[Rfam]
Nucleotides: 052
Base pairs, nucleotide, nucleotide: 005026006025007024008023009022010021011020012019027044028043029042030041031040032039
Number, partner (000 for none) and nucleotide at each position: 001000g002000a003000a004000a005026g006025g007024c008023u009022g010021u011020a012019u013000g014000g015000g016000u017000g018000c019012a020011u021010a022009c023008a024007g025006c026005u027044g028043g029042g030041u031040g032039u033000c034000u035000a036000u037000g038000c039032a040031c041030a042029c043028c044027c045000c046000a047000g048000u049000c050000a051000g052000a